Small nucleolar RNA U19: a 164-nucleotide RNA from Centaurea solstitialis. It scores 62 bits against the family's covariance model.
RNA sequence: AUCGCGCUUAGUUAGGAGGCUGAAAUCGAAUCUGUUUUAUGUUCCAUAUUAGAAAUUCAAUCUUCAUCGAUUGAGUUUUUUAAUUUGGAUCUAGAACUACUGAGACCUCUUGAGGAGAUCAUUUGUUUUACCAUCGAUUUUCUCCCAAGCAGUCUCAGAUAUUU
Numbered sequence: 001a002u003c004g005c006g007c008u009u010a011g012u013u014a015g016g017a018g019g020c021u022g023a024a025a026u027c028g029a030a031u032c033u034g035u036u037u038u039a040u041g042u043u044c045c046a047u048a049u050u051a052g053a054a055a056u057u058c059a060a061u062c063u064u065c066a067u068c069g070a071u072u073g074a075g076u077u078u079u080u081u082a083a084u085u086u087g088g089a090u091c092u093a094g095a096a097c098u099a100c101u102g103a104g105a106c107c108u109c110u111u112g113a114g115g116a117g118a119u120c121a122u123u124u125g126u127u128u129u130a131c132c133a134u135c136g137a138u139u140u141u142c143u144c145c146c147a148a149g150c151a152g153u154c155u156c157a158g159a160u161a162u163u164u
Base pairs, nucleotide, nucleotide: 004021007018008017009016034097035096036095037094038093043089044088045087046086100158101157102156103155104154105153106152109149110148111147112146114145115144116143117142118141121138122137

A reference for the family is Marker et al. (2002), "Experimental RNomics: identification of 140 candidates for small non-messenger RNAs in the plant Arabidopsis thaliana", Curr Biol. The base pairs follow the family's consensus structure, which was predicted with WAR.